RNA sequence: AAGCGUUGAAGGUCUAUGGUCGGUUGGUUUGACUGUGGCUGGAGCUUUACCAGGGUUGUGUGUGAACUCCUCAAGCCAACACAGAAAACACUCAUU
Numbered sequence: 001a002a003g004c005g006u007u008g009a010a011g012g013u014c015u016a017u018g019g020u021c022g023g024u025u026g027g028u029u030u031g032a033c034u035g036u037g038g039c040u041g042g043a044g045c046u047u048u049a050c051c052a053g054g055g056u057u058g059u060g061u062g063u064g065a066a067c068u069c070c071u072c073a074a075g076c077c078a079a080c081a082c083a084g085a086a087a088a089c090a091c092u093c094a095u096u
Stems, first nucleotide, its partner, number of pairs: 001047004011040004016036006024079004060091003
Description: The family of this 96-nucleotide RNA from Streptococcus suis is "drum RNA". Firmicutes, Bacteroidetes (1 example), Proteobacteria (2 examples), Spirochaetes (2 examples). The base pairs follow the family's consensus structure, which is taken from published work.